Shown here is a 257-nucleotide RNA sequence from Paenibacillus sp. N3.4, a member of the family "T-box leader". The source organism's lineage runs through Bacteria, Bacillota, Bacilli, Paenibacillaceae and Paenibacillus. The family's RNA type in Rfam is cis-regulatory leader.

RNA sequence: CCAAAUUCAUUGACGAGAACGAGUAAGCUAAUCCCCUUGUUUUCCAGAGAGUUGGCCUUGAGCUGAAAGCCAAUAUGCAAGAAUUAGCCGAAAAUCCCCUCCGAGAAGGAAAGCUGAAGGAACAGUAAGCUGACCCGGGAUCCCGCCGUUACAAGGGCCGCGUAUAUUCGUACGCAGAAUGAGGAGCUGCAAGGAUCAUACUCGUUAUGAUCACUGUGGAACUAGGGUGGUAUCGCGAGAUGAAUCUCGUCCCUUAC
Numbered sequence: 001c002c003a004a005a006u007u008c009a010u011u012g013a014c015g016a017g018a019a020c021g022a023g024u025a026a027g028c029u030a031a032u033c034c035c036c037u038u039g040u041u042u043u044c045c046a047g048a049g050a051g052u053u054g055g056c057c058u059u060g061a062g063c064u065g066a067a068a069g070c071c072a073a074u075a076u077g078c079a080a081g082a083a084u085u086a087g088c089c090g091a092a093a094a095u096c097c098c099c100u101c102c103g104a105g106a107a108g109g110a111a112a113g114c115u116g117a118a119g120g121a122a123c124a125g126u127a128a129g130c131u132g133a134c135c136c137g138g139g140a141u142c143c144c145g146c147c148g149u150u151a152c153a154a155g156g157g158c159c160g161c162g163u164a165u166a167u168u169c170g171u172a173c174g175c176a177g178a179a180u181g182a183g184g185a186g187c188u189g190c191a192a193g194g195a196u197c198a199u200a201c202u203c204g205u206u207a208u209g210a211u212c213a214c215u216g217u218g219g220a221a222c223u224a225g226g227g228u229g230g231u232a233u234c235g236c237g238a239g240a241u242g243a244a245u246c247u248c249g250u251c252c253c254u255u256a257c
Stems, first nucleotide, its partner, number of pairs: 007106002015101003027088005040077001042075001051074006109134001112131004136148003194212007224254004235250005